RNA: Gammaprotebacteria rimP leader
Organism: Providencia rustigianii
RNA sequence: UGGUAAACCCAUGCGUUAUGGGUCCAGUUACAAAAGCCCCGAUAUCGGGGUUUUUUGUUAUUUGAUAAUCGAAUUAACUGGGCUAUAUGCCCUUUUUUU
Numbered sequence: 001u002g003g004u005a006a007a008c009c010c011a012u013g014c015g016u017u018a019u020g021g022g023u024c025c026a027g028u029u030a031c032a033a034a035a036g037c038c039c040c041g042a043u044a045u046c047g048g049g050g051u052u053u054u055u056u057g058u059u060a061u062u063u064g065a066u067a068a069u070c071g072a073a074u075u076a077a078c079u080g081g082g083c084u085a086u087a088u089g090c091c092c093u094u095u096u097u098u099u
Base pairs, nucleotide, nucleotide: 033054034053035052036051037050038049039048040047041046080092081091082090083089